[Rfam]
Shown here is an 87-nucleotide sequence from Bos taurus, a member of the family "mir-146 microRNA precursor family". Lineage of the source: Eukaryota > Gnathostomata > Dipnotetrapodomorpha > Laurasiatheria > Bos. Gene Ontology terms of the family: RISC complex and miRNA-mediated post-transcriptional gene silencing. The base pairs follow the family's consensus structure, which was predicted with WAR.
RNA sequence: GUGUAUCCUCAGCUUUGAGAACUGAAUUCCAUAGGUUGUGUCAGUGUCAGACCUGUGAAGUUUAGUUCUUUAGCUGGGAUAUCUCUA
Numbered sequence: 001g002u003g004u005a006u007c008c009u010c011a012g013c014u015u016u017g018a019g020a021a022c023u024g025a026a027u028u029c030c031a032u033a034g035g036u037u038g039u040g041u042c043a044g045u046g047u048c049a050g051a052c053c054u055g056u057g058a059a060g061u062u063u064a065g066u067u068c069u070u071u072a073g074c075u076g077g078g079a080u081a082u083c084u085c086u087a
Base pairs, nucleotide, nucleotide: 008078009077011075012074013073018069019068020067021066022065023064024063025062033054034053035052036051